The record is an 80-nucleotide RNA sequence from Betta splendens, which matches "mir-19 microRNA precursor family" in Rfam.
RNA sequence: GUCUCUGGUUAGUUUUGCUGAUUUGCUUUCAGCUUCUUUUUUGUAAUGCUGUGCAAAUCCAUGCAAAACUGAUCAUAGAA
Numbered sequence: 001g002u003c004u005c006u007g008g009u010u011a012g013u014u015u016u017g018c019u020g021a022u023u024u025g026c027u028u029u030c031a032g033c034u035u036c037u038u039u040u041u042u043g044u045a046a047u048g049c050u051g052u053g054c055a056a057a058u059c060c061a062u063g064c065a066a067a068a069c070u071g072a073u074c075a076u077a078g079a080a
Base pairs, nucleotide, nucleotide: 003078004077006075007074008073009072010071011070012069013068014067015066016065017064018063020060022057023056024055025054026053028051031050032049033048
The base pairs follow the family's consensus structure, which was predicted with RNAalifold. On this family, see Lagos-Quintana et al., Science 2001: "Identification of novel genes coding for small expressed RNAs".